[Rfam]
RNA sequence: AUCACCUAGAGAUCUUAUUAAAAGUACAGAUUCUGGUUCAGUAGGCCUGAGAUGGGAACUAAGAUUCUGUGUUUCUAACAAGCUCCCAGGUGAUGCCUG
Numbered sequence: 001a002u003c004a005c006c007u008a009g010a011g012a013u014c015u016u017a018u019u020a021a022a023a024g025u026a027c028a029g030a031u032u033c034u035g036g037u038u039c040a041g042u043a044g045g046c047c048u049g050a051g052a053u054g055g056g057a058a059c060u061a062a063g064a065u066u067c068u069g070u071g072u073u074u075c076u077a078a079c080a081a082g083c084u085c086c087c088a089g090g091u092g093a094u095g096c097c098u099g
Base pairs, nucleotide, nucleotide: 003092004091005090009086011084014082015081016080018078019077020076021074022073023072026070027069028068029067030066032064033063034062
RNA: mir-544 microRNA precursor family
Organism: Equus asinus